The record is a 74-nucleotide RNA from Octodon degus, which matches "Small nucleolar RNA SNORD83" in Rfam. The family's RNA type in Rfam is C/D-box small nucleolar RNA. It scores 85 bits against the family's covariance model. The family's consensus secondary structure was predicted with PFOLD.
Nucleotides: 074
Stems, first nucleotide, its partner, number of pairs: 001073004027037004
Number, partner (000 for none) and nucleotide at each position: 001073g002072c003071c004070a005000c006000a007000u008000g009000a010000u011000g012000u013000u014000u015000c016000a017000c018000u019000u020000g021000g022000a023000g024000a025000g026000a027037g028036c029035g030034c031000u032000c033000u034030g035029c036028g037027c038000a039000g040000u041000g042000c043000u044000g045000a046000c047000c048000u049000u050000a051000a052000u053000c054000u055000a056000u057000c058000a059000c060000c061000c062000u063000u064000g065000a066000c067000u068000g069000a070004u071003g072002g073001c074000u